Small nucleolar RNA snR48: a 114-nucleotide RNA sequence from Henningerozyma blattae.
Clan: SNORD60 clan.
The match comes from Rfam's covariance-model search (92 bits).
RNA sequence: UUGAUAUGAUGAAUUUUUUUGAUCUACAUGUUUUUUUCUGGCAUCUCUAAUGCUAGAAUGUGACGUUUAAGUACCGAUCAUUCGAUGAAUAUACCUUUUGACAACUAUCUGAAU
Numbered sequence: 001u002u003g004a005u006a007u008g009a010u011g012a013a014u015u016u017u018u019u020u021g022a023u024c025u026a027c028a029u030g031u032u033u034u035u036u037u038c039u040g041g042c043a044u045c046u047c048u049a050a051u052g053c054u055a056g057a058a059u060g061u062g063a064c065g066u067u068u069a070a071g072u073a074c075c076g077a078u079c080a081u082u083c084g085a086u087g088a089a090u091a092u093a094c095c096u097u098u099u100g101a102c103a104a105c106u107a108u109c110u111g112a113a114u
Base pairs, nucleotide, nucleotide: 057082058081059080060079